[Rfam]
RNA: Small nucleolar RNA SNORA46
RNA sequence: AGCACUAUUUUUAAACCUGUGGAUGGGAUUUCUCUCCACUAUAGGUUACGCUGUAGUGCAAAAUAAUUCCUUGGCACUCUUCUGAGCACAACUGACCACCUACCAUUUGGUUGAUGCUACUAUAAGCUAAGGAACAGAA
Numbered sequence: 001a002g003c004a005c006u007a008u009u010u011u012u013a014a015a016c017c018u019g020u021g022g023a024u025g026g027g028a029u030u031u032c033u034c035u036c037c038a039c040u041a042u043a044g045g046u047u048a049c050g051c052u053g054u055a056g057u058g059c060a061a062a063a064u065a066a067u068u069c070c071u072u073g074g075c076a077c078u079c080u081u082c083u084g085a086g087c088a089c090a091a092c093u094g095a096c097c098a099c100c101u102a103c104c105a106u107u108u109g110g111u112u113g114a115u116g117c118u119a120c121u122a123u124a125a126g127c128u129a130a131g132g133a134a135c136a137g138a139a
Base pairs, nucleotide, nucleotide: 002059003058004057005056006055007054008053014047015046016045017044022040024038025037026036027035067134068133069132070131071130073128074127075126078124080122086117087116088115089113090112091111092110094108095107